[Rfam]
RNA: drz-agam-1 ribozyme
Organism: Hermetia illucens
RNA sequence: UACUACCAAACCCCUUCUCCACCUCCACGUGGUGAUCGCUGGAAGUUCUUGCUUUAUGAAAAACUCCAAACGGAGUAGG
Numbered sequence: 001u002a003c004u005a006c007c008a009a010a011c012c013c014c015u016u017c018u019c020c021a022c023c024u025c026c027a028c029g030u031g032g033u034g035a036u037c038g039c040u041g042g043a044a045g046u047u048c049u050u051g052c053u054u055u056a057u058g059a060a061a062a063a064c065u066c067c068a069a070a071c072g073g074a075g076u077a078g079g
Base pairs, nucleotide, nucleotide: 013079014078015077017075018074019073020072021033022032023031044065045064046063047062049060050059